[Rfam]
RNA sequence: AGCUGGUCUGAGUGCAGUGGUGUUUACAACUAAUUGAUCACAACCAGUUACAGAUUUCUUUGUUCCUUUUCCAUUUCCAUUGCUUCACUUGACUAAUCUAAA
Numbered sequence: 001a002g003c004u005g006g007u008c009u010g011a012g013u014g015c016a017g018u019g020g021u022g023u024u025u026a027c028a029a030c031u032a033a034u035u036g037a038u039c040a041c042a043a044c045c046a047g048u049u050a051c052a053g054a055u056u057u058c059u060u061u062g063u064u065c066c067u068u069u070u071c072c073a074u075u076u077c078c079a080u081u082g083c084u085u086c087a088c089u090u091g092a093c094u095a096a097u098c099u100a101a102a
Stems, first nucleotide, its partner, number of pairs: 002097001004095005010090002014086001016081005028064003032060002
Overview: The family of this 102-nucleotide RNA sequence from Macaca mulatta is "Y RNA". The family's consensus secondary structure is taken from published work. Lineage of the source: Eukaryota > Opisthokonta > Eutheria > Cercopithecidae > Macaca.